Rfam assigns this 225-nucleotide sequence from Manduca sexta to the family "RNase MRP".
By type it is a ribozyme.
NCBI's taxonomy places the organism under Eukaryota, Metazoa, Dicondylia, Lepidoptera, Manduca.
Its Rfam clan is "RNaseP clan".
RNA sequence: GGGUUCUGACCAGUUCGACUUCCGGGGUUACACACAGAGCCCUUCGUGGUUCCCUUUACCCUGUGGAAAGUCCCCGGAGACAGGGCGGAAAGCGUCACACCUUGAUGGUGCGAGCCGGGUCAGCGCCGUAGGGGGGGUUUACCUGCGCGGAGCUGCAUCCGAGCAUUGCUCAGAGCAAAGGUAAUGUCGAUUUAAACCAAAUGGGGCUUACUCGGUCUGGAAACC
Numbered sequence: 001g002g003g004u005u006c007u008g009a010c011c012a013g014u015u016c017g018a019c020u021u022c023c024g025g026g027g028u029u030a031c032a033c034a035c036a037g038a039g040c041c042c043u044u045c046g047u048g049g050u051u052c053c054c055u056u057u058a059c060c061c062u063g064u065g066g067a068a069a070g071u072c073c074c075c076g077g078a079g080a081c082a083g084g085g086c087g088g089a090a091a092g093c094g095u096c097a098c099a100c101c102u103u104g105a106u107g108g109u110g111c112g113a114g115c116c117g118g119g120u121c122a123g124c125g126c127c128g129u130a131g132g133g134g135g136g137g138u139u140u141a142c143c144u145g146c147g148c149g150g151a152g153c154u155g156c157a158u159c160c161g162a163g164c165a166u167u168g169c170u171c172a173g174a175g176c177a178a179a180g181g182u183a184a185u186g187u188c189g190a191u192u193u194a195a196a197c198c199a200a201a202u203g204g205g206g207c208u209u210a211c212u213c214g215g216u217c218u219g220g221a222a223a224c225c
Stems, first nucleotide, its partner, number of pairs: 002225002004222004008217004015190005023063006037052005068209003072206004084096004098110004112164001116161005121155004126150004136143002